The family of this 130-nucleotide RNA sequence from Ochotona princeps is "Small nucleolar RNA SNORA44". The family has 27 seed sequences and 1,056 matches in Rfam 15.1. On this family, see Huttenhofer et al., EMBO J 2001: "RNomics: an experimental approach that identifies 201 candidates for novel, small, non-messenger RNAs in mouse". Its Rfam clan is "SNORA44 clan". It is one of the family's seed sequences. ACA44 is a member of the H/ACA class of snoRNA that guide the sites of modification of uridines to pseudouridines.
RNA sequence: CAGCAUGUUUCCAAGGGCUGUGGCUGGCUGUAGCCAUGGGAUCUCCAACUGCAUGCGAGAGCAACCUGGAGGGCCUUUGACAGCGCAGGCCAGCCCGUGCCUGCAGCUGCCACUCAGCUUUCCGAUAGUU
Number, nucleotide and partner (000 for none) at each position: 001c000002a000003g000004c000005a000006u000007g000008u000009u000010u000011c039012c038013a000014a000015g000016g035017g034018c033019u032020g031021u030022g029023g000024c000025u000026g000027g000028c000029u022030g021031u020032a019033g018034c017035c016036a000037u000038g012039g011040g000041a000042u000043c000044u000045c000046c000047a000048a000049c000050u000051g000052c000053a000054u000055g000056c000057g000058a000059g000060a000061g000062c000063a000064a000065c000066c000067u000068g123069g122070a121071g120072g119073g118074c000075c000076u000077u000078u000079g000080a000081c000082a000083g110084c109085g000086c103087a102088g101089g100090c000091c000092a000093g000094c000095c000096c000097g000098u000099g000100c089101c088102u087103g086104c000105a000106g000107c000108u000109g084110c083111c000112a000113c000114u000115c000116a000117g000118c073119u072120u071121u070122c069123c068124g000125a000126u000127a000128g000129u000130u000